RNA: Molybdenum/Tungsten riboswitch aptamer (Moco RNA motif)
Organism: Syntrophotalea acetylenivorans
RNA sequence: UGCACUCUCAAUCUCCGAGCAUGACAACCUACGAGGAAGGUCCUUAUGGUUGCCAAGCCGACGGGUUCCGUUGGAAACAACGGUGCCUCCCACCUUUGGAAAGGAGAUUUUUCCCGGAACCG
Numbered sequence: 001u002g003c004a005c006u007c008u009c010a011a012u013c014u015c016c017g018a019g020c021a022u023g024a025c026a027a028c029c030u031a032c033g034a035g036g037a038a039g040g041u042c043c044u045u046a047u048g049g050u051u052g053c054c055a056a057g058c059c060g061a062c063g064g065g066u067u068c069c070g071u072u073g074g075a076a077a078c079a080a081c082g083g084u085g086c087c088u089c090c091c092a093c094c095u096u097u098g099g100a101a102a103g104g105a106g107a108u109u110u111u112u113c114c115c116g117g118a119a120c121c122g
Stems, first nucleotide, its partner, number of pairs: 003116001011108006019058002022055002025052005033045004063088004068083006089099002